[Rfam]
RNA sequence: GCCAUUGAUGAUCUUCGAGACAAGAUUCUUGGUGCCACCAUUGAGAACUCCAAGAUUGUCCUGCAGAUUAACAAU
Numbered sequence: 001g002c003c004a005u006u007g008a009u010g011a012u013c014u015u016c017g018a019g020a021c022a023a024g025a026u027u028c029u030u031g032g033u034g035c036c037a038c039c040a041u042u043g044a045g046a047a048c049u050c051c052a053a054g055a056u057u058g059u060c061c062u063g064c065a066g067a068u069u070a071a072c073a074a075u
Stems, first nucleotide, its partner, number of pairs: 010069002013066002016063002019060005027055006034048001
Dot-bracket structure: .........((.((.((.(((((...((((((.(.............).))))))))))).)).)).))......
mir-492 microRNA precursor family: a 75-nucleotide sequence from Myotis myotis. Pairs were carried over by alignment from the consensus structure, which was predicted with RNAalifold. Taxonomically the source falls in Myotis (Eukaryota, Vertebrata, Teleostomi, Yangochiroptera). The family has 6 seed sequences and 149 matches in Rfam 15.1. Gene Ontology terms of the family: miRNA-mediated post-transcriptional gene silencing and RISC complex.